[Rfam]
RNA sequence: CAAGGACCCGGUGAGAUUCCGGGUGGCUAUCCCGGCCGCCAAUCCGCCGGGGAAAC
Numbered sequence: 001c002a003a004g005g006a007c008c009c010g011g012u013g014a015g016a017u018u019c020c021g022g023g024u025g026g027c028u029a030u031c032c033c034g035g036c037c038g039c040c041a042a043u044c045c046g047c048c049g050g051g052g053a054a055a056c
Stems, first nucleotide, its partner, number of pairs: 006024006031051006
sul1 RNA: a 56-nucleotide sequence. The family's consensus secondary structure is taken from published work. The sequence is in the family's curated seed alignment.